Shown here is a 139-nucleotide sequence from Dicentrarchus labrax, a member of the family "Small nucleolar RNA SNORD10".
RNA sequence: UGUAUAAUGAUGAAACUCAUGCGUGUCAACUGACUCUGUAAACCCCUGGUGUGGUGUUGCUCUUGUUGGUGUUCUUCCAGCUUGAGUCCAUGGCACAGCAGGGGUCCACGGACAUGAUCAUAAAUCACUUCUGAAUACA
Numbered sequence: 001u002g003u004a005u006a007a008u009g010a011u012g013a014a015a016c017u018c019a020u021g022c023g024u025g026u027c028a029a030c031u032g033a034c035u036c037u038g039u040a041a042a043c044c045c046c047u048g049g050u051g052u053g054g055u056g057u058u059g060c061u062c063u064u065g066u067u068g069g070u071g072u073u074c075u076u077c078c079a080g081c082u083u084g085a086g087u088c089c090a091u092g093g094c095a096c097a098g099c100a101g102g103g104g105u106c107c108a109c110g111g112a113c114a115u116g117a118u119c120a121u122a123a124a125u126c127a128c129u130u131c132u133g134a135a136u137a138c139a
Stems, first nucleotide, its partner, number of pairs: 001139004044103005050097003

The family's consensus secondary structure was predicted with WAR. A reference for the family is Huttenhofer et al. (2001), "RNomics: an experimental approach that identifies 201 candidates for novel, small, non-messenger RNAs in mouse", EMBO J. It scores 84 bits against the family's covariance model. Its family is annotated with nucleolus and RNA processing in the Gene Ontology. The organism belongs to Dicentrarchus, within Eukaryota.